[Rfam]
RNA sequence: UGGCAACAAUGAUGAUGGAGUUGUAACUGUAUGUAAGGUUUCAUCACUGCAUGGAGACACCAGUCCCUCUAAACUGAUGUUGCCA
Numbered sequence: 001u002g003g004c005a006a007c008a009a010u011g012a013u014g015a016u017g018g019a020g021u022u023g024u025a026a027c028u029g030u031a032u033g034u035a036a037g038g039u040u041u042c043a044u045c046a047c048u049g050c051a052u053g054g055a056g057a058c059a060c061c062a063g064u065c066c067c068u069c070u071a072a073a074c075u076g077a078u079g080u081u082g083c084c085a
Base pairs, nucleotide, nucleotide: 001085002084003083004082005081006080007079
RNA: Small nucleolar RNA SNORD127